[Rfam]
Rfam assigns this 86-nucleotide sequence from Medicago truncatula to the family "MIR2617 microRNA precursor family". Gene Ontology terms of the family: miRNA-mediated post-transcriptional gene silencing and RISC complex.
RNA sequence: AAGAAGUGUGACAUGUCGUUUGGUGAUAAACUCUGAUGUUAUAUUUAUUAUUUAAUUGAUUUUGAGAAACGGGGUGUUACAGUAGA
Numbered sequence: 001a002a003g004a005a006g007u008g009u010g011a012c013a014u015g016u017c018g019u020u021u022g023g024u025g026a027u028a029a030a031c032u033c034u035g036a037u038g039u040u041a042u043a044u045u046u047a048u049u050a051u052u053u054a055a056u057u058g059a060u061u062u063u064g065a066g067a068a069a070c071g072g073g074g075u076g077u078u079a080c081a082g083u084a085g086a
Stems, first nucleotide, its partner, number of pairs: 005083001007081008016072005